The record is a 94-nucleotide RNA sequence from Lupinus angustifolius, which matches "Small nucleolar RNA snoR31/Z110/Z27" in Rfam. Rfam 15.1 lists 571 matches to the family in 198 species. Rfam's curators write: This family contains several related snoRNAs including R31, Z27 and Z110. Rfam classes the family as a C/D-box small nucleolar RNA. The organism belongs to Lupinus, within Eukaryota. On this family, see Barneche et al., J Mol Biol 2001: "Identification of 66 box C/D snoRNAs in Arabidopsis thaliana: extensive gene duplications generated multiple isoforms predicting new ribosomal RNA 2'-O-methylation sites". The family's consensus secondary structure was predicted with PFOLD.
RNA sequence: CACAUCAGAUGAUGAAAUUGGAAUAAUCUUAGGACACCUUCCUACACAGCAAUAAUUGCUGUGAAUGAGAAUAAUUUUCCAUGCUGAUGAUGUG
Numbered sequence: 001c002a003c004a005u006c007a008g009a010u011g012a013u014g015a016a017a018u019u020g021g022a023a024u025a026a027u028c029u030u031a032g033g034a035c036a037c038c039u040u041c042c043u044a045c046a047c048a049g050c051a052a053u054a055a056u057u058g059c060u061g062u063g064a065a066u067g068a069g070a071a072u073a074a075u076u077u078u079c080c081a082u083g084c085u086g087a088u089g090a091u092g093u094g
Stems, first nucleotide, its partner, number of pairs: 001094007042049002